[Rfam]
RNA sequence: ACAAACAAUAGAGGUUGCGAGAGUCACAGAAUUCAGGGAGUGUCCAAACACGUUGAACUGAAACUCUAGGAUGAUCGCCGAAAUCAACUUAUUUUUGGAAGUAGGUUGGUUGGGACAAGUGUGAAUAAUGCUUGGACUGUCCUAACGAAUUCGUUAGGGAGCGCUAUGAUUUUG
Numbered sequence: 001a002c003a004a005a006c007a008a009u010a011g012a013g014g015u016u017g018c019g020a021g022a023g024u025c026a027c028a029g030a031a032u033u034c035a036g037g038g039a040g041u042g043u044c045c046a047a048a049c050a051c052g053u054u055g056a057a058c059u060g061a062a063a064c065u066c067u068a069g070g071a072u073g074a075u076c077g078c079c080g081a082a083a084u085c086a087a088c089u090u091a092u093u094u095u096u097g098g099a100a101g102u103a104g105g106u107u108g109g110u111u112g113g114g115a116c117a118a119g120u121g122u123g124a125a126u127a128a129u130g131c132u133u134g135g136a137c138u139g140u141c142c143u144a145a146c147g148a149a150u151u152c153g154u155u156a157g158g159g160a161g162c163g164c165u166a167u168g169a170u171u172u173u174g
Base pairs, nucleotide, nucleotide: 008167009166010165011164017078018077019076020075023072024071025070032062033061034060035059036058082111083110084109085108086107087106088105089104090103091102092101093100112138113137116134117133118132119131120130121129122128140159141158142157143156144155145154146153
A member of the RNA family "Lysine riboswitch aptamer" from Lapidilactobacillus concavus, 174 nucleotides long. Rfam links the family to the GO term lysine biosynthetic process. About the family: Riboswitches are metabolite binding domains within certain messenger RNAs that serve as precision sensors for their corresponding targets.